[Rfam]
RNA sequence: UCCUACUUUAUGAUCGAAAUCAUUUACGGAUGUAAGCGAGCCAAGCUCGUGUGUCCGAGAGCGCAAAACCCCAUGUGGAUAUCCCGUUGCCUUCCUUCUGACCCUCAUA
Numbered sequence: 001u002c003c004u005a006c007u008u009u010a011u012g013a014u015c016g017a018a019a020u021c022a023u024u025u026a027c028g029g030a031u032g033u034a035a036g037c038g039a040g041c042c043a044a045g046c047u048c049g050u051g052u053g054u055c056c057g058a059g060a061g062c063g064c065a066a067a068a069c070c071c072c073a074u075g076u077g078g079a080u081a082u083c084c085c086g087u088u089g090c091c092u093u094c095c096u097u098c099u100g101a102c103c104c105u106c107a108u109a
Stems, first nucleotide, its partner, number of pairs: 004109002027086003